Source information
tRNA: a 75-nucleotide sequence from Klebsiella pneumoniae. Gene Ontology term of the family: triplet codon-amino acid adaptor activity. It scores 61 bits against the family's covariance model. The organism belongs to Klebsiella pneumoniae subsp. pneumoniae, within Bacteria.

[Rfam]
RNA sequence: GUUCGCAUAGCUUAACAAGGUUAAAGCACCCGACUCAUAAUCGGAUGAUUUCAGGUUCGAUCCCUGAUGCGAGCA
Number, nucleotide and partner (000 for none) at each position: 001g074002u073003u072004c071005g070006c069007a068008u000009a000010g027011c026012u025013u024014a000015a000016c000017a000018a000019g000020g000021u000022u000023a000024a013025a012026g011027c010028a000029c000030c044031c043032g042033a041034c000035u000036c000037a000038u000039a000040a000041u033042c032043g031044g030045a000046u000047g000048a000049u000050u000051u067052c066053a065054g064055g063056u000057u000058c000059g000060a000061u000062c000063c055064c054065u053066g052067a051068u007069g006070c005071g004072a003073g002074c001075a000